The family of this 77-nucleotide RNA from Alligator mississippiensis is "Mammalian CPEB3 ribozyme".
The family's consensus secondary structure is taken from published work.
It scores 47 bits against the family's covariance model.
[Rfam]
RNA sequence: UUGGCUAGUUAUUAGGCCAUAGCAGAAGCAUUCAUUGUGCAGCCAUGUCAGAUUGCAACAAAUCUGCAAAUUUGGCU
Number, nucleotide and partner (000 for none) at each position: 001u000002u000003g000004g000005c000006u000007a000008g000009u000010u000011a000012u000013u045014a000015g044016g043017c042018c000019a000020u000021a077022g076023c075024a000025g073026a072027a071028g040029c039030a038031u000032u000033c000034a000035u000036u000037g000038u030039g029040c028041a000042g017043c016044c015045a013046u000047g000048u000049c066050a065051g064052a063053u062054u061055g000056c000057a000058a000059c000060a000061a054062a053063u052064c051065u050066g049067c000068a000069a000070a000071u027072u026073u025074g000075g023076c022077u021
Record summary: From the family's description: The mammalian CPEB3 ribozyme is a self cleaving RNA located in the second intron of the CPEB3 gene which belongs to a family of genes regulating messenger RNA polyadenylation. Its family is annotated with RNA nuclease activity in the Gene Ontology.